[Rfam]
RNA sequence: AUCACCAGGGAUCUUGUUGAAAUGCAGAUUCUAAUUCAGGUGGGUCCUGAAAAUUCUGUAUUUCUAACAAGCUCUCAGGUGAUGCCAG
Numbered sequence: 001a002u003c004a005c006c007a008g009g010g011a012u013c014u015u016g017u018u019g020a021a022a023u024g025c026a027g028a029u030u031c032u033a034a035u036u037c038a039g040g041u042g043g044g045u046c047c048u049g050a051a052a053a054u055u056c057u058g059u060a061u062u063u064c065u066a067a068c069a070a071g072c073u074c075u076c077a078g079g080u081g082a083u084g085c086c087a088g
Base pairs, nucleotide, nucleotide: 003081004080005079008075009074010073013071014070015069016068017067018066019065020063021062022061024059025058026057027056028055030053032051